[Rfam]
RNA sequence: GGCAGGCGGGAUGCCCGGGGGGCGCGAAGGCCGGAUAAACUGGCACCGGAUUCGCGCCGAGCGCAGCUCUCGGCCGGGUCCAUCAAUGAUCAGCCAGCAGCCGCUGCAACCCCAGGGAG
Numbered sequence: 001g002g003c004a005g006g007c008g009g010g011a012u013g014c015c016c017g018g019g020g021g022g023c024g025c026g027a028a029g030g031c032c033g034g035a036u037a038a039a040c041u042g043g044c045a046c047c048g049g050a051u052u053c054g055c056g057c058c059g060a061g062c063g064c065a066g067c068u069c070u071c072g073g074c075c076g077g078g079u080c081c082a083u084c085a086a087u088g089a090u091c092a093g094c095c096a097g098c099a100g101c102c103g104c105u106g107c108a109a110c111c112c113c114a115g116g117g118a119g
Stems, first nucleotide, its partner, number of pairs: 048081006058072004095106004
A member of the RNA family "Streptomyces-metK RNA" from Streptomyces olivoverticillatus, 119 nucleotides long. NCBI's taxonomy places the organism under Bacteria, Bacillati, Actinomycetes, Streptomycetaceae, Streptomyces. The base pairs follow the family's consensus structure, which is taken from published work. The family's RNA type in Rfam is small RNA.